[Rfam]
RNA sequence: UUUAGACAAAAGCAAACCUGUGUGAAAACCAGGGGCGCAAAGCCACCGAUCUAAAGCCUCAAAGGCCAUGACAGCGGGGUUGCCUAG
Numbered sequence: 001u002u003u004a005g006a007c008a009a010a011a012g013c014a015a016a017c018c019u020g021u022g023u024g025a026a027a028a029c030c031a032g033g034g035g036c037g038c039a040a041a042g043c044c045a046c047c048g049a050u051c052u053a054a055a056g057c058c059u060c061a062a063a064g065g066c067c068a069u070g071a072c073a074g075c076g077g078g079g080u081u082g083c084c085u086a087g
Stems, first nucleotide, its partner, number of pairs: 012038002017033004022029002041081004046077003050071002056066004
Background
A member of the RNA family "c-di-GMP-I riboswitch aptamer" from Pseudomonas sp. TTU2014-080ASC, 87 nucleotides long. A search with the family's covariance model found it, with a score of 73 bits. The source organism's lineage runs through Bacteria, Pseudomonadati, Pseudomonadota, Pseudomonadales and Pseudomonas. The base pairs follow the family's consensus structure, which is taken from published work.